[Rfam]
RNA: c-di-AMP riboswitch aptamer (ydaO/yuaA leader)
RNA sequence: AUAAUUCUGUUGUCUAAUCUCAUCUGAGAGCGGGGGACCCAAUUUUUGGGGCGAAUCUAUAUUAGAAGAAGACCUUUACUUCUAGCCCGACAGCUAACUCCGUAGACUUUAAAUAAGGGACAG
Numbered sequence: 001a002u003a004a005u006u007c008u009g010u011u012g013u014c015u016a017a018u019c020u021c022a023u024c025u026g027a028g029a030g031c032g033g034g035g036g037a038c039c040c041a042a043u044u045u046u047u048g049g050g051g052c053g054a055a056u057c058u059a060u061a062u063u064a065g066a067a068g069a070a071g072a073c074c075u076u077u078a079c080u081u082c083u084a085g086c087c088c089g090a091c092a093g094c095u096a097a098c099u100c101c102g103u104a105g106a107c108u109u110u111a112a113a114u115a116a117g118g119g120a121c122a123g
Base pairs, nucleotide, nucleotide: 012107013106014105018029019028020027030103031102032101033100034099035098040048041047049088050087051086057065058064059063068082069081070080071079